[Rfam]
RNA sequence: GGCACUUGAGUUUGUUUUUGUCUGAUUUGUAGACAAAGACCAGAUAGACAGGUGCAAAGAAUAAGUCCUCUUUCGCAACCCAGAACUCAUUGUUCAGUAUGAGUUUUGAUACAGAUAAGAAGGGACAUA
Numbered sequence: 001g002g003c004a005c006u007u008g009a010g011u012u013u014g015u016u017u018u019u020g021u022c023u024g025a026u027u028u029g030u031a032g033a034c035a036a037a038g039a040c041c042a043g044a045u046a047g048a049c050a051g052g053u054g055c056a057a058a059g060a061a062u063a064a065g066u067c068c069u070c071u072u073u074c075g076c077a078a079c080c081c082a083g084a085a086c087u088c089a090u091u092g093u094u095c096a097g098u099a100u101g102a103g104u105u106u107u108g109a110u111a112c113a114g115a116u117a118a119g120a121a122g123g124g125a126c127a128u129a
Stems, first nucleotide, its partner, number of pairs: 002055007011046001014040008026031001065126005071120003075116001081108010
This 129-nucleotide sequence from Dasypus novemcinctus belongs to the Rfam family "Small nucleolar RNA SNORA40". About the family: The snoRNA ACA 40 belongs to the H/ACA family of snoRNAs and guides the pseudouridylation of 28S rRNA subunit at position U4565. NB This family has a high threshold value to exclude a large number of closely related sequences that do not appear to have conserved H and ACA boxes, and may be pseudogenes. The sequence is in the family's curated seed alignment. It is annotated as an H/ACA-box small nucleolar RNA. Pairs were carried over by alignment from the consensus structure, which was predicted with RNAalifold.